[Rfam]
RNA sequence: GGUCGGGUAGCGCGCAGUCAUACAAGACCCGAAAGGGAAAAGCUGCGGGCCGUCCAAGUGCGGUGUUCAAGUACCCGACCGCCCCUCU
Numbered sequence: 001g002g003u004c005g006g007g008u009a010g011c012g013c014g015c016a017g018u019c020a021u022a023c024a025a026g027a028c029c030c031g032a033a034a035g036g037g038a039a040a041a042g043c044u045g046c047g048g049g050c051c052g053u054c055c056a057a058g059u060g061c062g063g064u065g066u067u068c069a070a071g072u073a074c075c076c077g078a079c080c081g082c083c084c085c086u087c088u
Stems, first nucleotide, its partner, number of pairs: 001080009013047004018042001028037003049064005
RNA: sRNA-Xcc1